The record is a 105-nucleotide RNA from Brachypodium distachyon, which matches "Small nucleolar RNA Z107/R87" in Rfam.
By type it is a C/D-box small nucleolar RNA.
The family has 9 seed sequences and 783 matches in Rfam 15.1.
The family's consensus secondary structure was predicted with RNAfold.
[Rfam]
RNA sequence: GAUGGCAGUGACGACUUGCUAAUAUUCAAGCUCAACAGACCAAAUCACAGGUCAUCUCUUCAGAGUAUGAUCUGUAUGCCGAGUAUCCCGCUGAACUGAGCCAUC
Dot-bracket structure: ((((((.............................................................................................))))))

The organism belongs to Brachypodium, within Eukaryota.